[Rfam]
RNA sequence: UUAUUUUCGUUUCCGGUCAUCUUUUACGGGUAAAUCUUUCGCCUUUUACUAAAGAUUUCCGUGACCGGGAAUAAGUCAAUAAUUCUAAAGACUUAUUUUUGAAACCCUGCUUUACUGCAGAGC
Numbered sequence: 001u002u003a004u005u006u007u008c009g010u011u012u013c014c015g016g017u018c019a020u021c022u023u024u025u026a027c028g029g030g031u032a033a034a035u036c037u038u039u040c041g042c043c044u045u046u047u048a049c050u051a052a053a054g055a056u057u058u059c060c061g062u063g064a065c066c067g068g069g070a071a072u073a074a075g076u077c078a079a080u081a082a083u084u085c086u087a088a089a090g091a092c093u094u095a096u097u098u099u100u101g102a103a104a105c106c107c108u109g110c111u112u113u114a115c116u117g118c119a120g121a122g123c
Stems, first nucleotide, its partner, number of pairs: 003084001005082002009072011032058008105122001107120004
Dot-bracket structure: ..(.((..(((((((((((............((((((((...........))))))))...)))))))))))........)).)....................(.((((......)))).).